A member of the RNA family "SAM (S-adenosyl methionine) riboswitch aptamer" from Plantactinospora sp. BB1, 116 nucleotides long. A search with the family's covariance model found it, with a score of 94 bits. SAM-IV is a mRNA element that regulates gene expression via direct sensing of S-adenosylmethionine (SAM or AdoMet).

[Rfam]
RNA sequence: GGUCAUGAGCGCCAGCGCGAAGCCCCGGCUCGCUGGCCGGCAACCCUCCGUUCGCGGGCGGGGUGCUCCGGGUGAGGACCAGGCUCGGCACGAGCGAUGCCGAGCAAGCCGCGAAG
Dot-bracket structure: ((((....(.((((((....((......)).)))))))(((..(((.((.......))..))).))).........))))..((((((((.......))))))))...........